[Rfam]
BsrG: a 250-nucleotide RNA from Fontibacillus phaseoli. Rfam's curators write: bsrE, bsrG and bsrH pair through intermolecular interactions with antisense sRNAs.
RNA sequence: GAGCAAUAGAAGGCUUGCAAGGGCGGCCGGCUAAACUCCCGGAAGGGAGGUGAUGCCUGUGGAGGUCAAAGAUGCGAUAUCCUUAAUGUUCAUGUUCGGCAUGUUCAUUUUGGCGCUAUUAACUUACCUCAAAAAGAAAUAGGCCGCCCUCUAACCAGGAUCGCGGCCUAUUUCUAUCGGUAGUGCCUGUUUGGAAGCCGCCGCCCUUAAAAGCGGUCAUUGCUCCUGGAGCCGUGUUGACGCACGGCUC
Dot-bracket structure: (((((.(.(..(((((...((((.(.(....(.(.(((((....))))).).).......(..(((.......(((..........))).........((............))...)))..)..................).)..)))).........(((................))).............))))).((((........))))).).)))))...(((((((((....)))))))))
On this family, see Saito et al., Gene 2008: "Novel small RNA-encoding genes in the intergenic regions of Bacillus subtilis". Lineage of the source: Bacteria > Bacillati > Bacilli > Paenibacillaceae > Fontibacillus.